[Rfam]
RNA sequence: CGCUCAUUGUCCUGUAUGGCUUUUUAUUCCUAUCUGACUGUUUUGAGUUUCAUAUAGGGAUGGAAGCCAUGUAGGACUGGGGGCC
Numbered sequence: 001c002g003c004u005c006a007u008u009g010u011c012c013u014g015u016a017u018g019g020c021u022u023u024u025u026a027u028u029c030c031u032a033u034c035u036g037a038c039u040g041u042u043u044u045g046a047g048u049u050u051c052a053u054a055u056a057g058g059g060a061u062g063g064a065a066g067c068c069a070u071g072u073a074g075g076a077c078u079g080g081g082g083g084c085c
Stems, first nucleotide, its partner, number of pairs: 002084004007079001009077015026061008035052003